[Rfam]
RNA sequence: AUGAUUAAUUUACUAAAACACAUACAUAUCUGCACGGCAAAUUGGGGUGCUUGGAUCUUUGGAUUGAGGUUCAAUUUGUUUGAUAUGUAGAGGCUAAAC
Numbered sequence: 001a002u003g004a005u006u007a008a009u010u011u012a013c014u015a016a017a018a019c020a021c022a023u024a025c026a027u028a029u030c031u032g033c034a035c036g037g038c039a040a041a042u043u044g045g046g047g048u049g050c051u052u053g054g055a056u057c058u059u060u061g062g063a064u065u066g067a068g069g070u071u072c073a074a075u076u077u078g079u080u081u082g083a084u085a086u087g088u089a090g091a092g093g094c095u096a097a098a099c
Stems, first nucleotide, its partner, number of pairs: 023089008036080009049070004
A member of the RNA family "t44 RNA" from Cricetibacter osteomyelitidis, 99 nucleotides long. The family's consensus secondary structure was predicted with LocARNA. By type it is a small RNA. The source organism's lineage runs through Bacteria, Pseudomonadati, Pseudomonadota, Pasteurellales and Cricetibacter. This family consists of a number of bacterial RNA genes of between 135 and 170 bases in length. The t44 gene has been identified in several species of enteric bacteria but homologs have also been identified in Pseudomonas and Coxiella species. The t44 gene is found between the map and rpsB genes in all species in the full alignment apart from Shigella flexneri. The function of this RNA is unknown.